[Rfam]
RNA sequence: CUAGUUGUGAGACUAGGACUGAAGGUUAUUUGCGAUUGAAUAACGAGCAAAUACCGACUACAAAGCUCGGUACUGACGAACAGAAACCGUAUAUGAGGCAUUUAUGCAUGGGUAAGCAAGCACAUCAUUGUAACGCCCAAAAGAAUACCAAAGUGCAUAAAUGUAGAUACGGCAGGGAUCGGGUGAAAGAAGAUGUC
Numbered sequence: 001c002u003a004g005u006u007g008u009g010a011g012a013c014u015a016g017g018a019c020u021g022a023a024g025g026u027u028a029u030u031u032g033c034g035a036u037u038g039a040a041u042a043a044c045g046a047g048c049a050a051a052u053a054c055c056g057a058c059u060a061c062a063a064a065g066c067u068c069g070g071u072a073c074u075g076a077c078g079a080a081c082a083g084a085a086a087c088c089g090u091a092u093a094u095g096a097g098g099c100a101u102u103u104a105u106g107c108a109u110g111g112g113u114a115a116g117c118a119a120g121c122a123c124a125u126c127a128u129u130g131u132a133a134c135g136c137c138c139a140a141a142a143g144a145a146u147a148c149c150a151a152a153g154u155g156c157a158u159a160a161a162u163g164u165a166g167a168u169a170c171g172g173c174a175g176g177g178a179u180c181g182g183g184u185g186a187a188a189g190a191a192g193a194u195g196u197c
Base pairs, nucleotide, nucleotide: 001016002015003014004013005012006011055195056194061189065184066183067182068181069180070179071177073175074174075173087172088171089170090169091168092167098164099163100162102160103159104158105157106156107155108154110138111137112136113135116131117130118129119128
Dot-bracket structure: ((((((....))))))......................................((....(...(((((((.(((...........((((((.....(((.(((((((.((((..((((........))))...))))...............))))))).)))..))))))))).).))))))....)....))..
Rfam assigns this 197-nucleotide RNA sequence from Subsaximicrobium wynnwilliamsii to the family "Group II catalytic intron D1-D4-3". For this family Rfam cites "Group II introns: structure and catalytic versatility of large natural ribozymes" (Lehmann and Schmidt, Crit Rev Biochem Mol Biol, 2003). The pairing is the family consensus, mapped onto this sequence. A search with the family's covariance model found it, with a score of 116 bits.